[Rfam]
RNA sequence: AGCUCUCCCUGUUCCUUCGGAUCGUCCGGCACGUGCCUGCCGGGAAAGAGGCCUGA
Numbered sequence: 001a002g003c004u005c006u007c008c009c010u011g012u013u014c015c016u017u018c019g020g021a022u023c024g025u026c027c028g029g030c031a032c033g034u035g036c037c038u039g040c041c042g043g044g045a046a047a048g049a050g051g052c053c054u055g056a
Stems, first nucleotide, its partner, number of pairs: 008050001010048001012046003026043006

The family of this 56-nucleotide RNA sequence from Kocuria dechangensis is "msiK RNA".